[Rfam]
RNA sequence: UACUGUCAAUGAUGCUAAUAUAAUUACAAUGGGAAUCUCUCUGAAAAAAUGUGGAAGACUUGUAAUUACUGAAUCAGUA
Number, nucleotide and partner (000 for none) at each position: 001u079002a078003c077004u076005g075006u000007c000008a000009a000010u000011g000012a000013u000014g000015c000016u000017a000018a000019u000020a000021u000022a000023a000024u000025u000026a000027c000028a000029a000030u000031g000032g000033g000034a000035a000036u000037c000038u000039c000040u000041c000042u000043g000044a000045a000046a000047a000048a000049a000050u000051g000052u000053g000054g000055a000056a000057g000058a000059c000060u000061u000062g000063u000064a000065a000066u000067u000068a000069c000070u000071g000072a000073a000074u000075c005076a004077g003078u002079a001
Small nucleolar RNA SNORD79: a 79-nucleotide RNA from Chiloscyllium punctatum. The family has 28 seed sequences and 784 matches in Rfam 15.1. Rfam links the family to the GO terms RNA processing and nucleolus. It scores 59 bits against the family's covariance model. The family's consensus secondary structure was predicted with PFOLD.